Shown here is a 100-nucleotide RNA from Desulfuromonas thiophila, a member of the family "L20-Deltaproteobacteria ribosomal protein leader".
Rfam classes the family as a cis-regulatory leader.
The family's consensus secondary structure is taken from published work.

[Rfam]
RNA sequence: GACCGUGAACUGUGGGGAUCUGUCUCCCCCUGCAGAUCCGGCCGCAGGGCGGCAGGGCGUCGUCUUGUGAAAGCAGGUAGCAGCAUAUCGCCAGCAGGAG
Numbered sequence: 001g002a003c004c005g006u007g008a009a010c011u012g013u014g015g016g017g018a019u020c021u022g023u024c025u026c027c028c029c030c031u032g033c034a035g036a037u038c039c040g041g042c043c044g045c046a047g048g049g050c051g052g053c054a055g056g057g058c059g060u061c062g063u064c065u066u067g068u069g070a071a072a073g074c075a076g077g078u079a080g081c082a083g084c085a086u087a088u089c090g091c092c093a094g095c096a097g098g099a100g
Stems, first nucleotide, its partner, number of pairs: 003041003007038002010035008